[Rfam]
RNA sequence: AGGUACCACGCGUCCACUGCGGUUCUGAUCGCGCUGUCCGCGCCCACCUGACAGCGCCUCGCUAGGGUUUGUUAACC
Dot-bracket structure: ..(.((.....)).)....((((.(.....).))))............((((((..............))))))...
RNA: Xanthomonas sRNA sX9